RNA sequence: AUACUUACCUGUCAGGGGACAUACCAUGAUUCCAAAGGUGGUUUCCCCAGGGCUAAGCUCAUCCACUGCACUCCAGGUGUGCUGACCCCUGCAAUUUCCCCAAAUGCUGGAAACUUGACUGCAUGAUUUGUGGUAGUAGAGCCCAUGUUCAUGUUUUCCCC
Numbered sequence: 001a002u003a004c005u006u007a008c009c010u011g012u013c014a015g016g017g018g019a020c021a022u023a024c025c026a027u028g029a030u031u032c033c034a035a036a037g038g039u040g041g042u043u044u045c046c047c048c049a050g051g052g053c054u055a056a057g058c059u060c061a062u063c064c065a066c067u068g069c070a071c072u073c074c075a076g077g078u079g080u081g082c083u084g085a086c087c088c089c090u091g092c093a094a095u096u097u098c099c100c101c102a103a104a105u106g107c108u109g110g111a112a113a114c115u116u117g118a119c120u121g122c123a124u125g126a127u128u129u130g131u132g133g134u135a136g137u138a139g140a141g142c143c144c145a146u147g148u149u150c151a152u153g154u155u156u157u158c159c160c161c
Base pairs, nucleotide, nucleotide: 013121014120015119016048017047018046021043023042024041025040026039027038049090050089051088052087056083057082058081060079061078062077063076092117093116094115095113096112097111099110100109139158140157141156144153145152146151
Source information: Shown here is a 161-nucleotide RNA sequence from Chlorocebus sabaeus, a member of the family "U1 spliceosomal RNA". It scores 100 bits against the family's covariance model. By type it is a spliceosomal small nuclear RNA.